Annotation:
This 89-nucleotide RNA sequence from Cajanus cajan belongs to the Rfam family "Small nucleolar RNA Z221/R21b". Lineage of the source: Eukaryota > Viridiplantae > Magnoliopsida > Fabales > Cajanus. The base pairs follow the family's consensus structure, which was predicted with WAR.
RNA sequence: GGGCUAUGAUGAUUUCUUGAGAAUGUCAUGCACCACUCUGAUGAUUCAGUGCUGAUAAUGUUUCUCAUACCCAUAUUCAAUCUGAGCUC
Number, nucleotide and partner (000 for none) at each position: 001g089002g088003g087004c086005u000006a000007u000008g000009a000010u000011g000012a000013u000014u000015u000016c000017u000018u000019g000020a000021g000022a000023a000024u000025g000026u000027c000028a000029u000030g000031c000032a000033c000034c000035a000036c000037u000038c000039u000040g000041a000042u000043g000044a000045u000046u000047c000048a000049g000050u000051g000052c000053u000054g000055a000056u000057a000058a000059u000060g000061u000062u000063u000064c000065u000066c000067a000068u000069a000070c000071c000072c000073a000074u000075a000076u000077u000078c000079a000080a000081u000082c000083u000084g000085a000086g004087c003088u002089c001
Rfam links the family to the GO terms nucleolus and RNA processing. The family has 12 seed sequences and 588 matches in Rfam 15.1. For this family Rfam cites "The high diversity of snoRNAs in plants: identification and comparative study of 120 snoRNA genes from Oryza sativa" (Chen et al., Nucleic Acids Res, 2003).